A member of the RNA family "mir-2774 microRNA precursor family" from Bombyx mori, 67 nucleotides long. Its family is annotated with RISC complex and miRNA-mediated post-transcriptional gene silencing in the Gene Ontology. The family's consensus secondary structure was predicted with RNAalifold. The organism belongs to Bombyx, within Eukaryota.
RNA sequence: AAAACAUUCGAACCGUCGGUCUGCCGAAUAAUAUCACUCGCUCGGUGGAAGAUCUUCCCCCCGUUGU
Numbered sequence: 001a002a003a004a005c006a007u008u009c010g011a012a013c014c015g016u017c018g019g020u021c022u023g024c025c026g027a028a029u030a031a032u033a034u035c036a037c038u039c040g041c042u043c044g045g046u047g048g049a050a051g052a053u054c055u056u057c058c059c060c061c062c063g064u065u066g067u
Stems, first nucleotide, its partner, number of pairs: 004064002010058001012056001015053003020049008029040001